[Rfam]
RNA sequence: UUUGAUAAAGCCAAACCAGGAGCGAUCCUGGGACGGAAAGCUAAAGGGUCUCAACGAGAUAGCCAGUUGCCUGAU
Numbered sequence: 001u002u003u004g005a006u007a008a009a010g011c012c013a014a015a016c017c018a019g020g021a022g023c024g025a026u027c028c029u030g031g032g033a034c035g036g037a038a039a040g041c042u043a044a045a046g047g048g049u050c051u052c053a054a055c056g057a058g059a060u061a062g063c064c065a066g067u068u069g070c071c072u073g074a075u
Stems, first nucleotide, its partner, number of pairs: 004071001011036002016031006034062001039068004046064002048060003

A member of the RNA family "c-di-GMP-I-GGC riboswitch aptamer" from Candidatus Xianfuyuplasma coldseepsis, 75 nucleotides long. Taxonomically the source falls in Candidatus Xianfuyuplasma (Bacteria, Bacillati, Mollicutes, Candidatus Izemoplasmataceae). Gene Ontology term of the family: cyclic-di-GMP binding. It scores 61 bits against the family's covariance model.